Annotation: Rfam assigns this 600-nucleotide part of an RNA from Ectocarpus siliculosus to the family "Eukaryotic large subunit ribosomal RNA". It is one of the family's seed sequences. Lineage of the source: Eukaryota > Sar > Stramenopiles > Phaeophyceae > Ectocarpus.
RNA sequence: GGGAAAGAAGACCCUGUUGAGCUUGACUCUAGUCCGAUGUUGUGAAAUGACUUAUGAGGUGUAGAAUAGGCGGGAGGCUUUGCCGACGAUGAAAUACCGCCACUCGUAAUGUUGUUUUACUUAUUCCGUCAGGUAGAGUUCUAUCGCCCUCGCGGGCGGUGGAUUCUGGACUGAAGUCCUUUUGUUAGGGCGAUCUACGCGGGAGACAACAUCAGGUGGGGAGUUUGGCUGGGGCGGCACAUCUGUUAAACGAUAACACAGGUGUCCUAAGGUUAGCUCAAUGAGAACAGAAAUCUCAUGUAGAACAAAAGGGUAAAAGCUAACUUGAUUUUGAUUUUCAGUACGAAUACAAACUGUGAAAGCAUGGCCUAUCGAUCCUUUAGUUCUUUUGGAUUUUAAGCUAGAGGUGUCAGAAAAAGUUACCACAGGGAUAACUGGCUUGUGGCAGCCAAGCGUUCAUAGCGACGUUGCUUUUUGAUUCUUCGAUGUCGGCUCUUCCUAUCAUUGUGUCGCAGAAGUCACCAAGUGUAGGAUUGUUCACCCACUAACAGGGAACGUGAGCUGGGUUUAGACCGUCGUGAGACAGGUUAGUUUUACCCU
Numbered sequence: 001g002g003g004a005a006a007g008a009a010g011a012c013c014c015u016g017u018u019g020a021g022c023u024u025g026a027c028u029c030u031a032g033u034c035c036g037a038u039g040u041u042g043u044g045a046a047a048u049g050a051c052u053u054a055u056g057a058g059g060u061g062u063a064g065a066a067u068a069g070g071c072g073g074g075a076g077g078c079u080u081u082g083c084c085g086a087c088g089a090u091g092a093a094a095u096a097c098c099g100c101c102a103c104u105c106g107u108a109a110u111g112u113u114g115u116u117u118u119a120c121u122u123a124u125u126c127c128g129u130c131a132g133g134u135a136g137a138g139u140u141c142u143a144u145c146g147c148c149c150u151c152g153c154g155g156g157c158g159g160u161g162g163a164u165u166c167u168g169g170a171c172u173g174a175a176g177u178c179c180u181u182u183u184g185u186u187a188g189g190g191c192g193a194u195c196u197a198c199g200c201g202g203g204a205g206a207c208a209a210c211a212u213c214a215g216g217u218g219g220g221g222a223g224u225u226u227g228g229c230u231g232g233g234g235c236g237g238c239a240c241a242u243c244u245g246u247u248a249a250a251c252g253a254u255a256a257c258a259c260a261g262g263u264g265u266c267c268u269a270a271g272g273u274u275a276g277c278u279c280a281a282u283g284a285g286a287a288c289a290g291a292a293a294u295c296u297c298a299u300g301u302a303g304a305a306c307a308a309a310a311g312g313g314u315a316a317a318a319g320c321u322a323a324c325u326u327g328a329u330u331u332u333g334a335u336u337u338u339c340a341g342u343a344c345g346a347a348u349a350c351a352a353a354c355u356g357u358g359a360a361a362g363c364a365u366g367g368c369c370u371a372u373c374g375a376u377c378c379u380u381u382a383g384u385u386c387u388u389u390u391g392g393a394u395u396u397u398a399a400g401c402u403a404g405a406g407g408u409g410u411c412a413g414a415a416a417a418a419g420u421u422a423c424c425a426c427a428g429g430g431a432u433a434a435c436u437g438g439c440u441u442g443u444g445g446c447a448g449c450c451a452a453g454c455g456u457u458c459a460u461a462g463c464g465a466c467g468u469u470g471c472u473u474u475u476u477g478a479u480u481c482u483u484c485g486a487u488g489u490c491g492g493c494u495c496u497u498c499c500u501a502u503c504a505u506u507g508u509g510u511c512g513c514a515g516a517a518g519u520c521a522c523c524a525a526g527u528g529u530a531g532g533a534u535u536g537u538u539c540a541c542c543c544a545c546u547a548a549c550a551g552g553g554a555a556c557g558u559g560a561g562c563u564g565g566g567u568u569u570a571g572a573c574c575g576u577c578g579u580g581a582g583a584c585a586g587g588u589u590a591g592u593u594u595u596a597c598c599c600u
Stems, first nucleotide, its partner, number of pairs: 001600003005595002013429004018425002020421005026224004033216002036213004042120010052109007069101005076084002124204005134197004142161008176191005227240001228238003241263006266367002272324006278304002281299006305314002329353003334348004355364003378406006386400003438479001440477001442476001444472006453463002490565001491563004495557001496554005503528002507522003511518001531543002534540001571589004575584003